Overview
Rfam assigns this 69-nucleotide RNA sequence from Amborella trichopoda to the family "Plastid-clpP 5UTR RNA". The family has 343 seed sequences and 2,105 matches in Rfam 15.1. Plastid clpP is a non-coding RNA (ncRNA) recognised in plastids. The family's consensus secondary structure was predicted with LocARNA. The literature on the family includes a 2023 paper in Plant Commun by Richter et al., "Retrograde signaling in plants: A critical review focusing on the GUN pathway and beyond". A search with the family's covariance model found it, with a score of 80 bits. The family's RNA type in Rfam is cis-regulatory element.
[Rfam]
RNA sequence: GACUCUGCUCAUAGGAACAAAGAAAAGUAAAUUUAUUCUAUACUCGAUAAGUAUCAAUAUGCAAUGGGG
Numbered sequence: 001g002a003c004u005c006u007g008c009u010c011a012u013a014g015g016a017a018c019a020a021a022g023a024a025a026a027g028u029a030a031a032u033u034u035a036u037u038c039u040a041u042a043c044u045c046g047a048u049a050a051g052u053a054u055c056a057a058u059a060u061g062c063a064a065u066g067g068g069g
Base pairs, nucleotide, nucleotide: 003022004021006019007018009016010015043068044067045066051060052059053058